Nucleotides: 119
Base pairs, nucleotide, nucleotide: 009026029115030114031113032112034081035080036079037078038077039076040075041074042073046060047059048058049057050056063070087104088103089102090101091100092099093098
Number, partner (000 for none) and nucleotide at each position: 001000c002000a003000u004000g005000a006000a007000g008000a009026c010000g011000g012000c013000a014000a015000u016000c017000a018000u019000u020000c021000u022000c023000g024000u025000a026009g027000u028000a029115g030114g031113c032112a033000g034081g035080c036079g037078c038077g039076u040075g041074g042073g043000c044000a045000a046060g047059g048058c049057g050056g051000u052000g053000u054000a055000a056050c057049c058048g059047c060046c061000g062000g063070g064000c065000g066000a067000a068000a069000u070063c071000c072000u073042c074041c075040c076039a077038u078037g079036c080035g081034c082000a083000a084000g085000a086000c087104a088103g089102g090101c091100u092099c093098c094000c095000u096000c097000g098093g099092g100091g101090g102089c103088c104087u105000u106000u107000u108000u109000u110000a111000u112032u113031g114030c115029c116000c117000g118000a119000a

A member of the RNA family "Rhizobiales sRNA Atu_C8" from Neomesorhizobium albiziae, 119 nucleotides long. For this family Rfam cites "Deep sequencing uncovers numerous small RNAs on all four replicons of the plant pathogen Agrobacterium tumefaciens" (Wilms et al., RNA Biol, 2012). Taxonomically the source falls in Neomesorhizobium (Bacteria, Alphaproteobacteria, Hyphomicrobiales, Phyllobacteriaceae). By type it is a small RNA.